Overview:
U12 minor spliceosomal RNA: a 152-nucleotide RNA from Hydra vulgaris. It is annotated as a spliceosomal small nuclear RNA. Taxonomically the source falls in Hydra (Eukaryota, Eumetazoa, Hydroidolina, Hydridae). The literature on the family includes a 1997 paper in Trends Biochem Sci by Tarn and Steitz, "Pre-mRNA splicing: the discovery of a new spliceosome doubles the challenge".
[Rfam]
RNA sequence: UAGCCUUAAACUUAUGAGUAAGGAAAAUAAAAACCUGGGUGACGCUGGGUUAUACGUAAAUUACUCUUACGAUAGAUUUUUGAAGGGUGGCAGGCUGCCCAUGAGCUCGAAUCGCCUACUUUAGCGAAUCGCUUGUGUUGCUGCGGCCUCCG
Number, nucleotide and partner (000 for none) at each position: 001u000002a000003g000004c023005c022006u021007u020008a019009a000010a000011c000012u000013u000014a000015u000016g000017a000018g000019u008020a007021a006022g005023g004024a000025a000026a000027a000028u000029a000030a000031a000032a051033a050034c049035c048036u047037g046038g045039g000040u000041g000042a000043c000044g000045c038046u037047g036048g035049g034050u033051u032052a000053u000054a000055c071056g070057u069058a068059a067060a000061u000062u000063a000064c000065u000066c000067u059068u058069a057070c056071g055072a000073u000074a000075g000076a000077u000078u000079u000080u000081u000082g000083a000084a000085g000086g000087g000088u000089g150090g000091c000092a149093g148094g147095c146096u145097g144098c143099c000100c137101a136102u000103g134104a133105g132106c131107u000108c000109g000110a000111a000112u127113c126114g125115c124116c000117u000118a000119c000120u000121u000122u000123a000124g115125c114126g113127a112128a000129u000130c000131g106132c105133u104134u103135g000136u101137g100138u000139u000140g000141c000142u000143g098144c097145g096146g095147c094148c093149u092150c089151c000152g000